[Rfam]
RNA sequence: UUGCAGGUUCAAGUUACAAUAUGGCUGUGAAAGUGCCCAUAUUGUCGUUCCCCCUGCUCAAAGCAACAUGUUUCAUACUAUCCCUGUCUAACUGAUAACAUAGUAAGACAGGGACGCUUGGUCUCAAACAA
Numbered sequence: 001u002u003g004c005a006g007g008u009u010c011a012a013g014u015u016a017c018a019a020u021a022u023g024g025c026u027g028u029g030a031a032a033g034u035g036c037c038c039a040u041a042u043u044g045u046c047g048u049u050c051c052c053c054c055u056g057c058u059c060a061a062a063g064c065a066a067c068a069u070g071u072u073u074c075a076u077a078c079u080a081u082c083c084c085u086g087u088c089u090a091a092c093u094g095a096u097a098a099c100a101u102a103g104u105a106a107g108a109c110a111g112g113g114a115c116g117c118u119u120g121g122u123c124u125c126a127a128a129c130a131a
Stems, first nucleotide, its partner, number of pairs: 003057005016045008024036002083112004088107002091104001